[Rfam]
RNA: MIR2655 microRNA precursor family
RNA sequence: CCAAUAAGUAAUAAAAGGUCCGUUUAGAUCCCAAAACUUUAUUUAAAGUAUCAGUUUGAUCCUUUCGGUUAAUUUAAUUCAAAAAAACAUUAAAUUUAAAUACUAAUUAAAUAAGUUAAGGGAUCAAACUAAUGUUAAUUAAAUAAGAUAAGGGACCAAAAUUUAACUUUUUUCUAAUUAAAUCAACAGAAAUGAUCAAACCGAUACUUUCAAUAAAGUUAAGGGACCAAAACAGACAUUUUAUUAAUUGUGGGA
Numbered sequence: 001c002c003a004a005u006a007a008g009u010a011a012u013a014a015a016a017g018g019u020c021c022g023u024u025u026a027g028a029u030c031c032c033a034a035a036a037c038u039u040u041a042u043u044u045a046a047a048g049u050a051u052c053a054g055u056u057u058g059a060u061c062c063u064u065u066c067g068g069u070u071a072a073u074u075u076a077a078u079u080c081a082a083a084a085a086a087a088c089a090u091u092a093a094a095u096u097u098a099a100a101u102a103c104u105a106a107u108u109a110a111a112u113a114a115g116u117u118a119a120g121g122g123a124u125c126a127a128a129c130u131a132a133u134g135u136u137a138a139u140u141a142a143a144u145a146a147g148a149u150a151a152g153g154g155a156c157c158a159a160a161a162u163u164u165a166a167c168u169u170u171u172u173u174c175u176a177a178u179u180a181a182a183u184c185a186a187c188a189g190a191a192a193u194g195a196u197c198a199a200a201c202c203g204a205u206a207c208u209u210u211c212a213a214u215a216a217a218g219u220u221a222a223g224g225g226a227c228c229a230a231a232a233c234a235g236a237c238a239u240u241u242u243a244u245u246a247a248u249u250g251u252g253g254g255a
Stems, first nucleotide, its partner, number of pairs: 002253001004251004023232003027228001029226001031224002035220009045210003